Annotation
A member of the RNA family "Small nucleolar RNA SNORD116" from Orycteropus afer, 93 nucleotides long. It is annotated as a C/D-box small nucleolar RNA.
[Rfam]
RNA sequence: GGAUCGAUGAUGACUUCCACAUAUUCAUUCCUUGGAAAUCUGAAGAAAAUGAGUGAAAAAAUCCUUACCAUCUCACUCAUCAAACUGAAGUCC
Numbered sequence: 001g002g003a004u005c006g007a008u009g010a011u012g013a014c015u016u017c018c019a020c021a022u023a024u025u026c027a028u029u030c031c032u033u034g035g036a037a038a039u040c041u042g043a044a045g046a047a048a049a050u051g052a053g054u055g056a057a058a059a060a061a062u063c064c065u066u067a068c069c070a071u072c073u074c075a076c077u078c079a080u081c082a083a084a085c086u087g088a089a090g091u092c093c
Stems, first nucleotide, its partner, number of pairs: 001093004026055005032047002

Record summary: The family has 48 seed sequences and 3,260 matches in Rfam 15.1. The literature on the family includes a 2000 paper in Proc Natl Acad Sci U S A by Cavaille et al., "Identification of brain-specific and imprinted small nucleolar RNA genes exhibiting an unusual genomic organization".